Shown here is an 87-nucleotide RNA sequence from Myotis brandtii, a member of the family "mir-9195 microRNA precursor family". Rfam links the family to the GO terms RISC complex and miRNA-mediated post-transcriptional gene silencing. Lineage of the source: Eukaryota > Teleostomi > Dipnotetrapodomorpha > Laurasiatheria > Myotis.
[Rfam]
RNA sequence: AGAGGCCCUCCGCAGCUGGGGUGGAACGCUUGCCUCAUUGCCGCGGCGACGAAGCAAGCAUUCUGCCAGGCCGCUCACACUGCCCGC
Numbered sequence: 001a002g003a004g005g006c007c008c009u010c011c012g013c014a015g016c017u018g019g020g021g022u023g024g025a026a027c028g029c030u031u032g033c034c035u036c037a038u039u040g041c042c043g044c045g046g047c048g049a050c051g052a053a054g055c056a057a058g059c060a061u062u063c064u065g066c067c068a069g070g071c072c073g074c075u076c077a078c079a080c081u082g083c084c085c086g087c
Stems, first nucleotide, its partner, number of pairs: 004084003012074002015071003020067007028059006038049004